[Rfam]
RNA sequence: AUCGGUACUUGAGUACCGAUAUAAAUGUGCAGUGAGCCAUUACAACGGCAGCUGCAUAAAUCCUGUAUGGGCCGAUCCACACAAAACGGUAGGCGCCAAAUUUAUUACAAGGAG
Numbered sequence: 001a002u003c004g005g006u007a008c009u010u011g012a013g014u015a016c017c018g019a020u021a022u023a024a025a026u027g028u029g030c031a032g033u034g035a036g037c038c039a040u041u042a043c044a045a046c047g048g049c050a051g052c053u054g055c056a057u058a059a060a061u062c063c064u065g066u067a068u069g070g071g072c073c074g075a076u077c078c079a080c081a082c083a084a085a086a087c088g089g090u091a092g093g094c095g096c097c098a099a100a101u102u103u104a105u106u107a108c109a110a111g112g113a114g
Base pairs, nucleotide, nucleotide: 001020002019003018004017005016006015007014008013027057028056029055030054031053032052033051036049037048038047069097070096071094072093073092
Rfam assigns this 114-nucleotide sequence to the family "FTHFS RNA".